Source information: This 52-nucleotide RNA sequence from Hipposideros armiger belongs to the Rfam family "mir-1302 microRNA precursor family". The organism belongs to Hipposideros, within Eukaryota.
[Rfam]
RNA sequence: UUGUUAGCAUAAGUGUGUCCUAUGCGAUAUUUGGGACACACUUAUACUAAAA
Numbered sequence: 001u002u003g004u005u006a007g008c009a010u011a012a013g014u015g016u017g018u019c020c021u022a023u024g025c026g027a028u029a030u031u032u033g034g035g036a037c038a039c040a041c042u043u044a045u046a047c048u049a050a051a052a
Base pairs, nucleotide, nucleotide: 006048007047009045010044011043012042014040015039016038018036019035020034021033022031